RNA: L31-Actinobacteria ribosomal protein leader
RNA sequence: UUGGUUUCCGGUUCACCCUCGCCCGCCGGCGUGGGACCCGGGGCC
Numbered sequence: 001u002u003g004g005u006u007u008c009c010g011g012u013u014c015a016c017c018c019u020c021g022c023c024c025g026c027c028g029g030c031g032u033g034g035g036a037c038c039c040g041g042g043g044c045c
Stems, first nucleotide, its partner, number of pairs: 003045002006043001008041004016035003020031004